[Rfam]
RNA sequence: UGGCAACAAGAACCGGUGCUAAAGGGUCCCUGCCCCGACAACACCUGUCAGUAGUCGUUGGGCAGGACCCUUUAACACCGGCCCGUGUUACAAA
Numbered sequence: 001u002g003g004c005a006a007c008a009a010g011a012a013c014c015g016g017u018g019c020u021a022a023a024g025g026g027u028c029c030c031u032g033c034c035c036c037g038a039c040a041a042c043a044c045c046u047g048u049c050a051g052u053a054g055u056c057g058u059u060g061g062g063c064a065g066g067a068c069c070c071u072u073u074a075a076c077a078c079c080g081g082c083c084c085g086u087g088u089u090a091c092a093a094a
Stems, first nucleotide, its partner, number of pairs: 003091001005089004010084001013081006020074008029066002034062003038058002045051002

This 94-nucleotide RNA sequence from Sorghum bicolor belongs to the Rfam family "MIR5387 microRNA precursor family".
The organism belongs to Sorghum, within Eukaryota.